Shown here is a 126-nucleotide RNA from Phyllostomus discolor, a member of the family "Small nucleolar RNA SNORA77". ACA63 (SNORA77) is a member of the H/ACA class of snoRNAs that guide the sites of modification of uridines to pseudouridines. This snoRNA was identified by computational screening and its expression in mouse experimentally verified by Northern blot and primer extension analysis. ACA63 is proposed to guide the pseudouridylation of 18S rRNA U814. NCBI's taxonomy places the organism under Eukaryota, Opisthokonta, Sarcopterygii, Amniota, Phyllostomus. The family has 19 seed sequences and 843 matches in Rfam 15.1. The base pairs follow the family's consensus structure, which was predicted with RNAalifold.
RNA sequence: GCAGACUCACUCUGCACCUGGCUGCAGUCCCAGGCAGGUGCUUUUUUCGUCUGCCACAGAAACAUUCCAGAGUGCUGGGACUGCCUUGACCUGUCAAGGGUGACACAGCUGCCCUGGGACACGGUG
Numbered sequence: 001g002c003a004g005a006c007u008c009a010c011u012c013u014g015c016a017c018c019u020g021g022c023u024g025c026a027g028u029c030c031c032a033g034g035c036a037g038g039u040g041c042u043u044u045u046u047u048c049g050u051c052u053g054c055c056a057c058a059g060a061a062a063c064a065u066u067c068c069a070g071a072g073u074g075c076u077g078g079g080a081c082u083g084c085c086u087u088g089a090c091c092u093g094u095c096a097a098g099g100g101u102g103a104c105a106c107a108g109c110u111g112c113c114c115u116g117g118g119a120c121a122c123g124g125u126g
Base pairs, nucleotide, nucleotide: 001054002053003052004051005050006049014041015040016039017038018037019036020035022033023032024031067117068116069115070114072112073111074109075108076107077106079104082102083101084100085099086098